[Rfam]
RNA sequence: ACAAGGGGCUAAAUGUGCUCCCGAAAGAAUGCGCAAGUCUUCAGUGGCACCGAAGGCAACACUGUCAAAUUGCGGGGAAGCCCUAAAGCUUUGUCUACCAAGCAGGGAUGGAAACAUUUCUGUGGCCAGGGUAAUGACCUCGGGUAUGGUAAAAACGGCAAAGAUAGAACAAUGGUAAUCCGCAGCCAAGUCCUAAACUUGCACCCAGCUGGGGCAAGCAUGGAUGCAGUUCACAGACUAAAUGGCAGUGGGCUCUGCGAUAGAGAUUAUUGCGGGGCUUAAGAUAUAGUCGGACCCACCGCGAGAGCGGUUC
Numbered sequence: 001a002c003a004a005g006g007g008g009c010u011a012a013a014u015g016u017g018c019u020c021c022c023g024a025a026a027g028a029a030u031g032c033g034c035a036a037g038u039c040u041u042c043a044g045u046g047g048c049a050c051c052g053a054a055g056g057c058a059a060c061a062c063u064g065u066c067a068a069a070u071u072g073c074g075g076g077g078a079a080g081c082c083c084u085a086a087a088g089c090u091u092u093g094u095c096u097a098c099c100a101a102g103c104a105g106g107g108a109u110g111g112a113a114a115c116a117u118u119u120c121u122g123u124g125g126c127c128a129g130g131g132u133a134a135u136g137a138c139c140u141c142g143g144g145u146a147u148g149g150u151a152a153a154a155a156c157g158g159c160a161a162a163g164a165u166a167g168a169a170c171a172a173u174g175g176u177a178a179u180c181c182g183c184a185g186c187c188a189a190g191u192c193c194u195a196a197a198c199u200u201g202c203a204c205c206c207a208g209c210u211g212g213g214g215c216a217a218g219c220a221u222g223g224a225u226g227c228a229g230u231u232c233a234c235a236g237a238c239u240a241a242a243u244g245g246c247a248g249u250g251g252g253c254u255c256u257g258c259g260a261u262a263g264a265g266a267u268u269a270u271u272g273c274g275g276g277g278c279u280u281a282a283g284a285u286a287u288a289g290u291c292g293g294a295c296c297c298a299c300c301g302c303g304a305g306a307g308c309g310g311u312u313c
Stems, first nucleotide, its partner, number of pairs: 005022004010017002026040003060250005066244002071184006081175002084172001185230002190225004198218005234292001236291005252278009298311005
Dot-bracket structure: ....((((.((....)).))))...(((.........)))...................(((((.((...((((((....((.(.......................................................................................).))...))))))((...((((....(((((...........)))))...))))...))...[.[[[[[..)).))))).(((((((((.........)))))))))........]]]]]].....(((((....)))))..
Shown here is a 313-nucleotide RNA sequence from Spizellomyces punctatus, a member of the family "Group I catalytic intron". A reference for the family is Cech (1990), "Self-splicing of group I introns", Annu Rev Biochem. The base pairs follow the family's consensus structure, which is taken from published work. The organism belongs to Spizellomyces punctatus, within Eukaryota.